A member of the RNA family "T-box leader" from Hujiaoplasma nucleasis, 191 nucleotides long.
Pairs were carried over by alignment from the consensus structure, which is taken from published work.
RNA sequence: AUUAAAUCAAUGAUAUGGAAUAGUAAUUAUAUAUUAUUUUCUUAGAGACAAGAUGGUUGGUGUAAAUCUUGAUUAAAAUAUAAUGAAUGGACCAUGGAGAGGUGCUAAAGACAUCCGUAGAUCUGCGUUAAAGAUUUAAGUGCUAGUUUACUAGAACUAAGGUGGUACCACGGUAAUAAAUCGUCCUUUAU
Numbered sequence: 001a002u003u004a005a006a007u008c009a010a011u012g013a014u015a016u017g018g019a020a021u022a023g024u025a026a027u028u029a030u031a032u033a034u035u036a037u038u039u040u041c042u043u044a045g046a047g048a049c050a051a052g053a054u055g056g057u058u059g060g061u062g063u064a065a066a067u068c069u070u071g072a073u074u075a076a077a078a079u080a081u082a083a084u085g086a087a088u089g090g091a092c093c094a095u096g097g098a099g100a101g102g103u104g105c106u107a108a109a110g111a112c113a114u115c116c117g118u119a120g121a122u123c124u125g126c127g128u129u130a131a132a133g134a135u136u137u138a139a140g141u142g143c144u145a146g147u148u149u150a151c152u153a154g155a156a157c158u159a160a161g162g163u164g165g166u167a168c169c170a171c172g173g174u175a176a177u178a179a180a181u182c183g184u185c186c187u188u189u190a191u
Stems, first nucleotide, its partner, number of pairs: 007100002015095004026084006040072001049071006102114003106110001116127003143154004159188004170184005
The match comes from Rfam's covariance-model search (124 bits). By type it is a cis-regulatory leader. NCBI's taxonomy places the organism under Bacteria, Bacillati, Mycoplasmatota, Candidatus Izemoplasmatales, Hujiaoplasma.